The family of this 75-nucleotide RNA from Pengzhenrongella sicca is "c-di-GMP-I-GGC riboswitch aptamer". Taxonomically the source falls in Pengzhenrongella (Bacteria, Bacillati, Actinomycetes, Micrococcales). The match comes from Rfam's covariance-model search (61 bits).

RNA sequence: ACCGGCAACGGCAAACCCGUCGCAAGGCGGGGACGCACAGCCACGGGACCCUCCGGGUCAGCCGGGCUCCCGAGG
Numbered sequence: 001a002c003c004g005g006c007a008a009c010g011g012c013a014a015a016c017c018c019g020u021c022g023c024a025a026g027g028c029g030g031g032g033a034c035g036c037a038c039a040g041c042c043a044c045g046g047g048a049c050c051c052u053c054c055g056g057g058u059c060a061g062c063c064g065g066g067c068u069c070c071c072g073a074g075g
Stems, first nucleotide, its partner, number of pairs: 003072002011036002016031006034061001039068004044064003047059003